[Rfam]
The record is a 161-nucleotide RNA from Senna tora, which matches "U1 spliceosomal RNA" in Rfam. Gene Ontology terms of the family: U1 snRNP, pre-mRNA 5'-splice site binding and mRNA 5'-splice site recognition. Lineage of the source: Eukaryota > Embryophyta > Mesangiospermae > Caesalpinioideae > Senna. It scores 146 bits against the family's covariance model.
RNA sequence: AUACUUACCUGGACGGGGUCAAUGGAUGAUCAAGUAGAUCCAUGGCCUAGGUUGGUGACCACCAUUGCACAUAGGAGGGGUGCUAGCCUAAGGUCUUCCCAAGUGGAGGAGCCUACGUCAUAAUUUGUGAUAGAGGGGGCUUGCGUUCGCGCAGCCCCUGC
Numbered sequence: 001a002u003a004c005u006u007a008c009c010u011g012g013a014c015g016g017g018g019u020c021a022a023u024g025g026a027u028g029a030u031c032a033a034g035u036a037g038a039u040c041c042a043u044g045g046c047c048u049a050g051g052u053u054g055g056u057g058a059c060c061a062c063c064a065u066u067g068c069a070c071a072u073a074g075g076a077g078g079g080g081u082g083c084u085a086g087c088c089u090a091a092g093g094u095c096u097u098c099c100c101a102a103g104u105g106g107a108g109g110a111g112c113c114u115a116c117g118u119c120a121u122a123a124u125u126u127g128u129g130a131u132a133g134a135g136g137g138g139g140c141u142u143g144c145g146u147u148c149g150c151g152c153a154g155c156c157c158c159u160g161c
Stems, first nucleotide, its partner, number of pairs: 012119004016048006023042005049089003053086001055083003059079002062075002091114003094110003098106002135159004142153004
From the family's description: U1 is a small nuclear RNA (snRNA) component of the spliceosome (involved in pre-mRNA splicing).